[Rfam]
RNA: Rhodo-rpoB RNA
Organism: Paracoccus contaminans
RNA sequence: GGUUCGGGAGCAGGGCGGUGGGACGCCCGGCACGAAUGGAACCGCGCCCCUGAUGUUCGCAAGCACGCCCGGAUCGGGCCCCGACGAUCCCCGGC
Numbered sequence: 001g002g003u004u005c006g007g008g009a010g011c012a013g014g015g016c017g018g019u020g021g022g023a024c025g026c027c028c029g030g031c032a033c034g035a036a037u038g039g040a041a042c043c044g045c046g047c048c049c050c051u052g053a054u055g056u057u058c059g060c061a062a063g064c065a066c067g068c069c070c071g072g073a074u075c076g077g078g079c080c081c082c083g084a085c086g087a088u089c090c091c092c093g094g095c
Stems, first nucleotide, its partner, number of pairs: 001043005010031002013028005067095003071091001072089005